Saccharopolyspora sRNA 350: a 504-nucleotide RNA sequence from Actinomadura harenae. The base pairs follow the family's consensus structure, which was predicted with RNAfold.

[Rfam]
RNA sequence: CGGUAGGCGUGCUCCCACUCGCCCGGCGCGGGCAGCAGCGCCGAGGCGCCGAAGUAGCGUCCGUCGGCGAGCAGGUCCAGCACGACCUCCGCGCCGUACUCGCCCCGCCCGACCUGCUCGACCUUCCCGUGCGCGACCAGCAGCACCCGGUCGACCGGCCCGCCGGGCUGGACGAUCACGUCGCCCGGCUCGUACUCGCGCUGGACGAACCGUCCGGCGGCGUCCUGCAGCAGCGGCUCGUCGACCCCGGCGAGCUGCGGCAGCUCGGCCAGCUCGGCCGGGAUCACGCUGAUCGCCGCGCCGGUGUUGACGAACUCGACGAUCCCGUCCCCGACGGUGUGCGCGAGGCGGCGGUUCACCCGGUAGGUGCCGCCCGCGACCUCCACCCAGGGCAGCAGCCGCAGCAGGUAGCGCGGCGUGAUGCCCUGCAUCAUGGGCGCGGACUUGGUGGUCGUCGCCAGGUUCCGCGCUGCCCUGGUCGACAGGCUCAGCUGGUGGCCCCCA
Numbered sequence: 001c002g003g004u005a006g007g008c009g010u011g012c013u014c015c016c017a018c019u020c021g022c023c024c025g026g027c028g029c030g031g032g033c034a035g036c037a038g039c040g041c042c043g044a045g046g047c048g049c050c051g052a053a054g055u056a057g058c059g060u061c062c063g064u065c066g067g068c069g070a071g072c073a074g075g076u077c078c079a080g081c082a083c084g085a086c087c088u089c090c091g092c093g094c095c096g097u098a099c100u101c102g103c104c105c106c107g108c109c110c111g112a113c114c115u116g117c118u119c120g121a122c123c124u125u126c127c128c129g130u131g132c133g134c135g136a137c138c139a140g141c142a143g144c145a146c147c148c149g150g151u152c153g154a155c156c157g158g159c160c161c162g163c164c165g166g167g168c169u170g171g172a173c174g175a176u177c178a179c180g181u182c183g184c185c186c187g188g189c190u191c192g193u194a195c196u197c198g199c200g201c202u203g204g205a206c207g208a209a210c211c212g213u214c215c216g217g218c219g220g221c222g223u224c225c226u227g228c229a230g231c232a233g234c235g236g237c238u239c240g241u242c243g244a245c246c247c248c249g250g251c252g253a254g255c256u257g258c259g260g261c262a263g264c265u266c267g268g269c270c271a272g273c274u275c276g277g278c279c280g281g282g283a284u285c286a287c288g289c290u291g292a293u294c295g296c297c298g299c300g301c302c303g304g305u306g307u308u309g310a311c312g313a314a315c316u317c318g319a320c321g322a323u324c325c326c327g328u329c330c331c332c333g334a335c336g337g338u339g340u341g342c343g344c345g346a347g348g349c350g351g352c353g354g355u356u357c358a359c360c361c362g363g364u365a366g367g368u369g370c371c372g373c374c375c376g377c378g379a380c381c382u383c384c385a386c387c388c389a390g391g392g393c394a395g396c397a398g399c400c401g402c403a404g405c406a407g408g409u410a411g412c413g414c415g416g417c418g419u420g421a422u423g424c425c426c427u428g429c430a431u432c433a434u435g436g437g438c439g440c441g442g443a444c445u446u447g448g449u450g451g452u453c454g455u456c457g458c459c460a461g462g463u464u465c466c467g468c469g470c471u472g473c474c475c476u477g478g479u480c481g482a483c484a485g486g487c488u489c490a491g492c493u494g495g496u497g498g499c500c501c502c503c504a
Stems, first nucleotide, its partner, number of pairs: 006387002009384001011382001015378001019322002024318003029312001036309007045302005051296001054231002057228002059225001062222003065111003075103001077102001079100002082097003086093001117219001122217002127212001129210002131206001134203002140197001143196001150191001155188004160183001162177001166173001232293001234291002238286001240284003247280001249278001251276005258267002326339004350374005357369004388428007396420002400415003404412001436471002439468005444462006477500003481496001483494003